Rfam assigns this 91-nucleotide sequence from Brevibacillus fluminis to the family "c-di-GMP-I-GGC riboswitch aptamer".

[Rfam]
RNA sequence: UUCGAAAAAGGCAAACUCAUUGAAAAAUGGGGACGCAAAGCUAAAGGGGCUUCCAUGUCAUCAAAAACAUGUUGCCAGCCAGCUACCGAGU
Numbered sequence: 001u002u003c004g005a006a007a008a009a010g011g012c013a014a015a016c017u018c019a020u021u022g023a024a025a026a027a028u029g030g031g032g033a034c035g036c037a038a039a040g041c042u043a044a045a046g047g048g049g050c051u052u053c054c055a056u057g058u059c060a061u062c063a064a065a066a067a068c069a070u071g072u073u074g075c076c077a078g079c080c081a082g083c084u085a086c087c088g089a090g091u
Base pairs, nucleotide, nucleotide: 003088004087011036012035016031017030018029019028020027021026034078039084040083041082042081046080047079048076049075050074
Pairs were carried over by alignment from the consensus structure, which is taken from published work. Lineage of the source: Bacteria > Bacillota > Bacilli > Caryophanales > Brevibacillus.